The family of this 326-nucleotide sequence from Colletotrichum gloeosporioides is "Group I catalytic intron". About the family: Group I catalytic introns are large self-splicing ribozymes. The literature on the family includes a 1990 paper in Annu Rev Biochem by Cech, "Self-splicing of group I introns". The organism belongs to Colletotrichum gloeosporioides, within Eukaryota.
RNA sequence: CCUUUCCAUUUCUGAUCUCCUAAAAAAGGACUUGGGAAAUCCUUAUCAACAAACGUUGGGAGUAAACUAUCAAAUUCCGGGGAACCCCUAAAGCUUCUGGUACUAAACCAUAUAUGAAGAUAUAUGAGUGGCUGAAUUAAUUACUCAGGUAUAGUAAUAAGCCAGAAGAUGAGUGAAAGCGAAAUGGGCAAUCGCGGAUCUAAGUCAGUAAUACAUACGAACAAGCAGUCUAGUAUUAUUGUAAAAGAGCAACGAGUAAAUGGUAGUUGAUGUGGUAUUAAUUUAUCACAUUUAAGAUGUACUCUACUGGGCUUCGAAAGAAGCUA
Numbered sequence: 001c002c003u004u005u006c007c008a009u010u011u012c013u014g015a016u017c018u019c020c021u022a023a024a025a026a027a028g029g030a031c032u033u034g035g036g037a038a039a040u041c042c043u044u045a046u047c048a049a050c051a052a053a054c055g056u057u058g059g060g061a062g063u064a065a066a067c068u069a070u071c072a073a074a075u076u077c078c079g080g081g082g083a084a085c086c087c088c089u090a091a092a093g094c095u096u097c098u099g100g101u102a103c104u105a106a107a108c109c110a111u112a113u114a115u116g117a118a119g120a121u122a123u124a125u126g127a128g129u130g131g132c133u134g135a136a137u138u139a140a141u142u143a144c145u146c147a148g149g150u151a152u153a154g155u156a157a158u159a160a161g162c163c164a165g166a167a168g169a170u171g172a173g174u175g176a177a178a179g180c181g182a183a184a185u186g187g188g189c190a191a192u193c194g195c196g197g198a199u200c201u202a203a204g205u206c207a208g209u210a211a212u213a214c215a216u217a218c219g220a221a222c223a224a225g226c227a228g229u230c231u232a233g234u235a236u237u238a239u240u241g242u243a244a245a246a247g248a249g250c251a252a253c254g255a256g257u258a259a260a261u262g263g264u265a266g267u268u269g270a271u272g273u274g275g276u277a278u279u280a281a282u283u284u285a286u287c288a289c290a291u292u293u294a295a296g297a298u299g300u301a302c303u304c305u306a307c308u309g310g311g312c313u314u315c316g317a318a319a320g321a322a323g324c325u326a
Stems, first nucleotide, its partner, number of pairs: 003028003065268005071262002076198004080193002086188003199248002206241002211236004252305001254304005270291008311324005